[Rfam]
RNA sequence: ACCUGUUAAAGGCAAACUACCCGAAAGGGUAGGACGCAAAACAAUGGCCUAAAUCUUACUUAUUAAAGAUAAGGUAGCCAUGUUGCCAGG
Dot-bracket structure: ...........((...((((((....))))))...))..((((.(((((....((((........))))...)))...))))))......

Source information
A member of the RNA family "c-di-GMP-I riboswitch aptamer" from Candidatus Scalindua japonica, 90 nucleotides long. Its family is annotated with cyclic-di-GMP binding in the Gene Ontology.